Description
This 142-nucleotide RNA from Staphylococcus haemolyticus belongs to the Rfam family "FMN riboswitch aptamer (RFN element)". The RFN element is a highly conserved domain that is found frequently in the 5'-untranslated regions of prokaryotic mRNAs that encode for flavin mononucleotide (FMN) biosynthesis and transport proteins. The match comes from Rfam's covariance-model search (114 bits).
[Rfam]
RNA sequence: GAAUUCUUUCGGGGCGGGGUGCAAUUCCCAACCGGCAGUAAUAUAAGCCUGCGACCUGUCAAAGUGAAAGGUAAUAACUUUGAUGGCUGAUCUAGUGAGAUUCUAGAGCCGACAGUGAAAGUCUGGAUGGGAGAAAGAAUGA
Numbered sequence: 001g002a003a004u005u006c007u008u009u010c011g012g013g014g015c016g017g018g019g020u021g022c023a024a025u026u027c028c029c030a031a032c033c034g035g036c037a038g039u040a041a042u043a044u045a046a047g048c049c050u051g052c053g054a055c056c057u058g059u060c061a062a063a064g065u066g067a068a069a070g071g072u073a074a075u076a077a078c079u080u081u082g083a084u085g086g087c088u089g090a091u092c093u094a095g096u097g098a099g100a101u102u103c104u105a106g107a108g109c110c111g112a113c114a115g116u117g118a119a120a121g122u123c124u125g126g127a128u129g130g131g132a133g134a135a136a137g138a139a140u141g142a
Stems, first nucleotide, its partner, number of pairs: 003140008017029003031122002033111002035052004047109002056086007091107005113125003